[Rfam]
RNA sequence: AACCCCUGGCAAUGGACAAAGAGACACCUUGUUGAUUGUGUUGUUCUUAUAUGAGCCAGGGCAGAGCAGAUGGCUUUCCUUUGUUCAUCCUAGUUGAUGCCUGGCUUGGUGGCCAAAGCUGUUUCAUGCCUAGGGCAUGUAA
Numbered sequence: 001a002a003c004c005c006c007u008g009g010c011a012a013u014g015g016a017c018a019a020a021g022a023g024a025c026a027c028c029u030u031g032u033u034g035a036u037u038g039u040g041u042u043g044u045u046c047u048u049a050u051a052u053g054a055g056c057c058a059g060g061g062c063a064g065a066g067c068a069g070a071u072g073g074c075u076u077u078c079c080u081u082u083g084u085u086c087a088u089c090c091u092a093g094u095u096g097a098u099g100c101c102u103g104g105c106u107u108g109g110u111g112g113c114c115a116a117a118g119c120u121g122u123u124u125c126a127u128g129c130c131u132a133g134g135g136c137a138u139g140u141a142a
Stems, first nucleotide, its partner, number of pairs: 003061001005060004013054001015052001019048003023042005082137005096130001098128001102126003107121002110118001